[Rfam]
RNA sequence: GAGCGGAGGGCGCAUAGGAACCGCAGAUGCCUAUUUAGGAUGCGCCCGACAACCUGCCAACGAGCAAAGCGAGUGGGCGAUUCCCGUG
Numbered sequence: 001g002a003g004c005g006g007a008g009g010g011c012g013c014a015u016a017g018g019a020a021c022c023g024c025a026g027a028u029g030c031c032u033a034u035u036u037a038g039g040a041u042g043c044g045c046c047c048g049a050c051a052a053c054c055u056g057c058c059a060a061c062g063a064g065c066a067a068a069g070c071g072a073g074u075g076g077g078c079g080a081u082u083c084c085c086g087u088g
Stems, first nucleotide, its partner, number of pairs: 008047006016032003020028001056078003060074002064070002
Dot-bracket structure: .......((((((..(((.(.......).))).........))))))........(((.((..((...))..)).)))..........
Record summary:
The record is an 88-nucleotide RNA sequence, which matches "GA-cis RNA" in Rfam. The base pairs follow the family's consensus structure, which is taken from published work.